The family of this 263-nucleotide sequence from Eshraghiella crossota is "Bacterial large signal recognition particle RNA". Gene Ontology terms of the family: signal recognition particle, plasma membrane targeting and SRP-dependent cotranslational protein targeting to membrane, signal sequence recognition. It scores 183 bits against the family's covariance model. Lineage of the source: Bacteria > Bacillati > Lachnospiraceae > Eshraghiella > Eshraghiella crossota.
RNA sequence: CCAUGCAGCCGGGGAAUUAGCGGCUCCCUGAACCUGAAAUCCGCUAUAGCAGGGGUGAUAUUCUGCCGAGGGCUUUUGUUUAUUGUAGCUGCCCGGUUUAAGUGAUGUUGAUGCUUGGGUCUUACGCAAUAGGAAUCCACGAACCAUGUCAGGUUGGGAACAAAGCAGCAUUAAGUGGAAGCUCUUAUGUGACGUGAGGUCGCCUGAGUUGAGUUAACUGAAUCGGUAACGUGUGAUGGACGGGCUCGAAGCAGGAUGCAUGG
Numbered sequence: 001c002c003a004u005g006c007a008g009c010c011g012g013g014g015a016a017u018u019a020g021c022g023g024c025u026c027c028c029u030g031a032a033c034c035u036g037a038a039a040u041c042c043g044c045u046a047u048a049g050c051a052g053g054g055g056u057g058a059u060a061u062u063c064u065g066c067c068g069a070g071g072g073c074u075u076u077u078g079u080u081u082a083u084u085g086u087a088g089c090u091g092c093c094c095g096g097u098u099u100a101a102g103u104g105a106u107g108u109u110g111a112u113g114c115u116u117g118g119g120u121c122u123u124a125c126g127c128a129a130u131a132g133g134a135a136u137c138c139a140c141g142a143a144c145c146a147u148g149u150c151a152g153g154u155u156g157g158g159a160a161c162a163a164a165g166c167a168g169c170a171u172u173a174a175g176u177g178g179a180a181g182c183u184c185u186u187a188u189g190u191g192a193c194g195u196g197a198g199g200u201c202g203c204c205u206g207a208g209u210u211g212a213g214u215u216a217a218c219u220g221a222a223u224c225g226g227u228a229a230c231g232u233g234u235g236a237u238g239g240a241c242g243g244g245c246u247c248g249a250a251g252c253a254g255g256a257u258g259c260a261u262g263g
Base pairs, nucleotide, nucleotide: 001263002262003261004260005259006258007257008056009055010054011029012028013027014026015025017023018022033053034052035051036050061256062255063254064253065252066251070247071246072245073244074243077242078241079240080239081238082237083236084235085234086233090228091227094225095224096223097222098221099220102218103217104215105214106213113209114208115207116206117205118204119203120202121198122197123196124195125194126193127189128188130187131186132185133184134183136179137178138177139176140175146171147170148169149168154163155162156161